[Rfam]
RNA sequence: UUAGUCCUUCGGGGUCGGGUGAAAAUCCCAACCGGCGGUGAUGAAGAAAUUCUAAGCCCGCGAGCCUGAUAAAGGCAGGAUUUGGUGAGAUUCCAAAGCCGACAGUACAGUCUGGAUGGGAGAAGGACGUG
Numbered sequence: 001u002u003a004g005u006c007c008u009u010c011g012g013g014g015u016c017g018g019g020u021g022a023a024a025a026u027c028c029c030a031a032c033c034g035g036c037g038g039u040g041a042u043g044a045a046g047a048a049a050u051u052c053u054a055a056g057c058c059c060g061c062g063a064g065c066c067u068g069a070u071a072a073a074g075g076c077a078g079g080a081u082u083u084g085g086u087g088a089g090a091u092u093c094c095a096a097a098g099c100c101g102a103c104a105g106u107a108c109a110g111u112c113u114g115g116a117u118g119g120g121a122g123a124a125g126g127a128c129g130u131g
Stems, first nucleotide, its partner, number of pairs: 004128007017029003031111002033101002035061004056099002066075001081097005103114003
This 131-nucleotide RNA sequence from Peribacillus muralis belongs to the Rfam family "FMN riboswitch aptamer (RFN element)".